The record is a 297-nucleotide RNA sequence from Cronobacter sakazakii, which matches "Soft rot Enterobacteriaceae Rev 39 5'UTR" in Rfam. From bacteria cultured under starvation conditions. Rfam links the family to the GO term cellular response to starvation. A search with the family's covariance model found it, with a score of 168 bits. On this family, see Kwenda et al., BMC Genomics 2016: "Discovery and profiling of small RNAs responsive to stress conditions in the plant pathogen Pectobacterium atrosepticum". Lineage of the source: Bacteria > Pseudomonadati > Gammaproteobacteria > Enterobacterales > Cronobacter sakazakii.

[Rfam]
RNA sequence: AUUUCUUGUCACAGCUUUGUUCUCUGUGAUAACUCUUUAGGUAUUCCUUCGAAAAUGACGUAAGUGCAUACAGAAAUGACAACCCUUCUACUAGUGAUUAGCCUGGUCGUGAUUAGCGUGGUGGUGAUUAUUAACCCACCGUGCGGGGCUGCACUCGGAAGAAGAAAGGCUUAGAAAUCAAGCCUGAAUCAUCGAAAACCCCCGCACCGAAAGGUCCGGGGGUUUUUUUAUGACCUAAAACUUAAGCGAGGAACAGAGAAUGAGUAGUAGCAUAAAAUUCUGUUGUCCGCAUUGUAA
Numbered sequence: 001a002u003u004u005c006u007u008g009u010c011a012c013a014g015c016u017u018u019g020u021u022c023u024c025u026g027u028g029a030u031a032a033c034u035c036u037u038u039a040g041g042u043a044u045u046c047c048u049u050c051g052a053a054a055a056u057g058a059c060g061u062a063a064g065u066g067c068a069u070a071c072a073g074a075a076a077u078g079a080c081a082a083c084c085c086u087u088c089u090a091c092u093a094g095u096g097a098u099u100a101g102c103c104u105g106g107u108c109g110u111g112a113u114u115a116g117c118g119u120g121g122u123g124g125u126g127a128u129u130a131u132u133a134a135c136c137c138a139c140c141g142u143g144c145g146g147g148g149c150u151g152c153a154c155u156c157g158g159a160a161g162a163a164g165a166a167a168g169g170c171u172u173a174g175a176a177a178u179c180a181a182g183c184c185u186g187a188a189u190c191a192u193c194g195a196a197a198a199c200c201c202c203c204g205c206a207c208c209g210a211a212a213g214g215u216c217c218g219g220g221g222g223u224u225u226u227u228u229u230a231u232g233a234c235c236u237a238a239a240a241c242u243u244a245a246g247c248g249a250g251g252a253a254c255a256g257a258g259a260a261u262g263a264g265u266a267g268u269a270g271c272a273u274a275a276a277a278u279u280c281u282g283u284u285g286u287c288c289g290c291a292u293u294g295u296a297a
Base pairs, nucleotide, nucleotide: 006032007031008030009029010028011027012026037074038073040071044066046064048062049058050057084251085250086249092244093243098238099237100236101234103232106229108118109117110116120140121139122138123137124136126135128133142159144157145156146155147154161190162189168184169183170182171181172180194227195226196225197224198223199222200221201220202219203218204217206215207214208213252284253283254282255281256280257279258278260273261272262271